[Rfam]
RNA sequence: GUCGCCGCCGGACGGAACCGGUCGAGAGGGUUGGGGAGCCCGAUGACCGACCGGCCUCCGAGACACGGAGCGGGUCUAUUGGGAGCCCGCACCGUUCGCUCCGGCGAAGGAG
Numbered sequence: 001g002u003c004g005c006c007g008c009c010g011g012a013c014g015g016a017a018c019c020g021g022u023c024g025a026g027a028g029g030g031u032u033g034g035g036g037a038g039c040c041c042g043a044u045g046a047c048c049g050a051c052c053g054g055c056c057u058c059c060g061a062g063a064c065a066c067g068g069a070g071c072g073g074g075u076c077u078a079u080u081g082g083g084a085g086c087c088c089g090c091a092c093c094g095u096u097c098g099c100u101c102c103g104g105c106g107a108a109g110g111a112g
Stems, first nucleotide, its partner, number of pairs: 006106007013060004018054007028041005062097002065095004071089005
About this RNA
Shown here is a 112-nucleotide RNA sequence from Actinomyces bowdenii, a member of the family "Actinomyces-1 RNA". Taxonomically the source falls in Actinomyces (Bacteria, Bacillati, Actinomycetota, Actinomycetaceae).